[Rfam]
RNA sequence: UGGACAGAUUAUUUAAUUCAAUUAUAUUCGACUGUAUUCACAAUGUGAAAUAGGGGAUUACACUGUUUUUAAAACGGAAAGUGAAUCAAUUAACAUAAUAGACUCCU
Numbered sequence: 001u002g003g004a005c006a007g008a009u010u011a012u013u014u015a016a017u018u019c020a021a022u023u024a025u026a027u028u029c030g031a032c033u034g035u036a037u038u039c040a041c042a043a044u045g046u047g048a049a050a051u052a053g054g055g056g057a058u059u060a061c062a063c064u065g066u067u068u069u070u071a072a073a074a075c076g077g078a079a080a081g082u083g084a085a086u087c088a089a090u091u092a093a094c095a096u097a098a099u100a101g102a103c104u105c106c107u
Stems, first nucleotide, its partner, number of pairs: 002106003019101001021099005027093002030091002033088002036086006044076003047069007
RNA: MIR6152 microRNA precursor family
Organism: Nicotiana tabacum